[Rfam]
RNA sequence: AAUCCUCACACGGGGGGUCUCGACAAGAAACUGAGAUACUGCUGGCACCUGAACCUCUUGAGUUCGAACGCAGCGCAGUGACCCGAUGAACCUGAUCCAGUUCAUACUGGCGUAGGGAUGGUGUUCUGGCUGCACA
Dot-bracket structure: ......(((.((((..((.((.....)).))......(((((................................)))))..)))).....((((..((((......))))..))))....))).............